[Rfam]
RNA: eL15-Euryarchaeota ribosomal protein leader
Organism: Halolamina rubra
RNA sequence: CCCGAUAGCUCGGGACGAAAUGUGGUCGAAAGAGGCGCGACGCGCCUCCCGAGGCGGCGGAGCCGCCGACAUUCGACUGAAUCGCAAG
Number, nucleotide and partner (000 for none) at each position: 001c014002c013003c012004g011005a010006u000007a000008g000009c000010u005011c004012g003013g002014g001015a000016c084017g083018a082019a000020a000021u000022g000023u000024g078025g077026u076027c075028g074029a073030a072031a000032g000033a000034g000035g000036c000037g000038c000039g000040a000041c000042g000043c000044g000045c000046c000047u000048c000049c000050c000051g000052a000053g000054g000055c000056g000057g000058c000059g000060g000061a000062g000063c000064c000065g000066c000067c000068g000069a000070c000071a000072u030073u029074c028075g027076a026077c025078u024079g000080a000081a000082u018083c017084g016085c000086a000087a000088g000